Source information: The record is a 108-nucleotide RNA sequence from Cytobacillus dafuensis, which matches "SAM riboswitch aptamer (S box leader)" in Rfam. It scores 88 bits against the family's covariance model. NCBI's taxonomy places the organism under Bacteria, Bacillota, Caryophanales, Bacillaceae, Cytobacillus.
RNA sequence: UUCUUAUCAAGAGAGGUGGAGGGACUGACCCUGUGAAGCCUCGGCAACCAGCAUCCAUAUGCCACGGUGCCAAUUUCAGAGGAAUGAUCACAAUUCCGAAGAUGAGAA
Numbered sequence: 001u002u003c004u005u006a007u008c009a010a011g012a013g014a015g016g017u018g019g020a021g022g023g024a025c026u027g028a029c030c031c032u033g034u035g036a037a038g039c040c041u042c043g044g045c046a047a048c049c050a051g052c053a054u055c056c057a058u059a060u061g062c063c064a065c066g067g068u069g070c071c072a073a074u075u076u077c078a079g080a081g082g083a084a085u086g087a088u089c090a091c092a093a094u095u096c097c098g099a100a101g102a103u104g105a106g107a108a
Base pairs, nucleotide, nucleotide: 001108002107003106004105005104006103007102008101013042014041015040016039017038021031022030023029025079026078027077028076043071044070045069046068048067049066051062052061053060075100081096082095083094085092